Rfam assigns this 102-nucleotide RNA sequence from Varanus komodoensis to the family "MIR1888 microRNA precursor family".
The source organism's lineage runs through Eukaryota, Opisthokonta, Deuterostomia, Anguimorpha and Varanus.
The match comes from Rfam's covariance-model search (75 bits).
Rfam links the family to the GO terms RISC complex and miRNA-mediated post-transcriptional gene silencing.
The family has 2 seed sequences and 44 matches in Rfam 15.1.

RNA sequence: CCAGAUUCUAAGAAUAUCUUGGGGGAGAGACACAGUAAUUAUGGGAGAUUUCAAUCUCCCAUAAUUACUGUGUCUCUCCCCCAAGAUAUUCUUAGAAUCUGG
Numbered sequence: 001c002c003a004g005a006u007u008c009u010a011a012g013a014a015u016a017u018c019u020u021g022g023g024g025g026a027g028a029g030a031c032a033c034a035g036u037a038a039u040u041a042u043g044g045g046a047g048a049u050u051u052c053a054a055u056c057u058c059c060c061a062u063a064a065u066u067a068c069u070g071u072g073u074c075u076c077u078c079c080c081c082c083a084a085g086a087u088a089u090u091c092u093u094a095g096a097a098u099c100u101g102g
Stems, first nucleotide, its partner, number of pairs: 001102009011093002013090024039064007